This 125-nucleotide RNA sequence from Arthrobacter sp. ISL-30 belongs to the Rfam family "Actinobacteria sRNA Ms_IGR-7". Pairs were carried over by alignment from the consensus structure. The family's RNA type in Rfam is small RNA. A reference for the family is Li et al. (2013), "Identification of small RNAs in Mycobacterium smegmatis using heterologous Hfq", RNA.
RNA sequence: CGGAAGGGUGCUCCUUCGCUCGGCGGAAUAACGGUCUCGACAACCACUAUUUUCCCAGCUCAGAGCACCCUUCCCCUGCUUAAACACACGCUUUCAACAGCCCACCCGUGAAACUGCCGGGUUAG
Numbered sequence: 001c002g003g004a005a006g007g008g009u010g011c012u013c014c015u016u017c018g019c020u021c022g023g024c025g026g027a028a029u030a031a032c033g034g035u036c037u038c039g040a041c042a043a044c045c046a047c048u049a050u051u052u053u054c055c056c057a058g059c060u061c062a063g064a065g066c067a068c069c070c071u072u073c074c075c076c077u078g079c080u081u082a083a084a085c086a087c088a089c090g091c092u093u094u095c096a097a098c099a100g101c102c103c104a105c106c107c108g109u110g111a112a113a114c115u116g117c118c119g120g121g122u123u124a125g
Base pairs, nucleotide, nucleotide: 002074003073004072005071006070007069008068009067010066011065012064013063015062019058022056023055026052027051028050029049033045034044035043099123100122101121102120103119